A member of the RNA family "Small Cajal body specific RNA 4" from Ochotona princeps, 131 nucleotides long. A reference for the family is Darzacq et al. (2002), "Cajal body-specific small nuclear RNAs: a novel class of 2'-O-methylation and pseudouridylation guide RNAs", EMBO J. Rfam describes the family as follows. scaRNAs are a specific class of small nuclear RNAs which localise to the Cajal bodies and guide the modification of RNA polymerase II transcribed spliceosomal RNAs U1, U2, U4, U5 and U12. ACA26 belongs to the H/ACA box class of guide RNAs as it has the predicted hairpin-hinge-hairpin-tail structure, conserved H/ACA-box motifs and is found associated with GAR1. NCBI's taxonomy places the organism under Eukaryota, Opisthokonta, Eumetazoa, Amniota, Ochotona.
RNA sequence: CCUGGAGGACUAAGAAGGCCAAGUCUGAUGAAGCAAGCCUUGGCUGAUACACUCCUCCUAGAAAAAAAGGGUUGGAGAGAGCAGCCCUUCAUGGAGAAGGUCCCAGGGGCUGACUGUACUACCCAACAUUC
Numbered sequence: 001c002c003u004g005g006a007g008g009a010c011u012a013a014g015a016a017g018g019c020c021a022a023g024u025c026u027g028a029u030g031a032a033g034c035a036a037g038c039c040u041u042g043g044c045u046g047a048u049a050c051a052c053u054c055c056u057c058c059u060a061g062a063a064a065a066a067a068a069g070g071g072u073u074g075g076a077g078a079g080a081g082c083a084g085c086c087c088u089u090c091a092u093g094g095a096g097a098a099g100g101u102c103c104c105a106g107g108g109g110c111u112g113a114c115u116g117u118a119c120u121a122c123c124c125a126a127c128a129u130u131c
Stems, first nucleotide, its partner, number of pairs: 002061002004058006017045003021041003025037002069124004080115002082112007093103002